Shown here is a 141-nucleotide RNA sequence from Caenorhabditis remanei, a member of the family "Caenorhabditis snoRNA ceN51". Rfam classes the family as an H/ACA-box small nucleolar RNA.
RNA sequence: CACUGCGUGAGUACUGGCUGUUUGUGUCUCCACCAUUGCCAAUCAGCUGUCAUUAACCACGCUAAACUGAAAUGGAGUGCUAAAUUACCGUGUGAAUACCAUAACCAAGAUUGGUCACUCGGAGGAGGCACUUCCACAUUU
Numbered sequence: 001c002a003c004u005g006c007g008u009g010a011g012u013a014c015u016g017g018c019u020g021u022u023u024g025u026g027u028c029u030c031c032a033c034c035a036u037u038g039c040c041a042a043u044c045a046g047c048u049g050u051c052a053u054u055a056a057c058c059a060c061g062c063u064a065a066a067c068u069g070a071a072a073u074g075g076a077g078u079g080c081u082a083a084a085u086u087a088c089c090g091u092g093u094g095a096a097u098a099c100c101a102u103a104a105c106c107a108a109g110a111u112u113g114g115u116c117a118c119u120c121g122g123a124g125g126a127g128g129c130a131c132u133u134c135c136a137c138a139u140u141u
Base pairs, nucleotide, nucleotide: 005062006061007060008059009058011057012056013050014049016048017047018046019045020044022042023041024040026039027038074134075133076132077131078130079129080128081127085124086123088122089121090120092118093117094116095115099114100113101112
Record summary:
It is one of the family's seed sequences.